[Rfam]
RNA sequence: UAGGGAAGUCGCGACUGGCGCUGGCGUGCGCCCCAUGGGGCCGCGUCGCAAGGUGGGUCACCACCGGGGAGCAUUCUCGCGGAGGCCGUGCGCCUGGGCCGCCGCA
Numbered sequence: 001u002a003g004g005g006a007a008g009u010c011g012c013g014a015c016u017g018g019c020g021c022u023g024g025c026g027u028g029c030g031c032c033c034c035a036u037g038g039g040g041c042c043g044c045g046u047c048g049c050a051a052g053g054u055g056g057g058u059c060a061c062c063a064c065c066g067g068g069g070a071g072c073a074u075u076c077u078c079g080c081g082g083a084g085g086c087c088g089u090g091c092g093c094c095u096g097g098g099c100c101g102c103c104g105c106a
Stems, first nucleotide, its partner, number of pairs: 003078004011072002015068002017094005053064004084100004
Record summary: ZMP/ZTP riboswitch aptamer (pfl RNA motif): a 106-nucleotide RNA sequence from Planotetraspora thailandica.